Iron response element I: a 36-nucleotide sequence from Otolemur garnettii. Rfam classes the family as a cis-regulatory element. Rfam 15.1 lists 6,829 matches to the family in 599 species. NCBI's taxonomy places the organism under Eukaryota, Craniata, Theria, Boreoeutheria, Otolemur. Its family is annotated with response to iron ion in the Gene Ontology.

[Rfam]
RNA sequence: CAGUUUCCUGCUUCAACAGUGCUUGGACGGAAACGG
Numbered sequence: 001c002a003g004u005u006u007c008c009u010g011c012u013u014c015a016a017c018a019g020u021g022c023u024u025g026g027a028c029g030g031a032a033a034c035g036g
Stems, first nucleotide, its partner, number of pairs: 001036001003034006010028001012027005017021001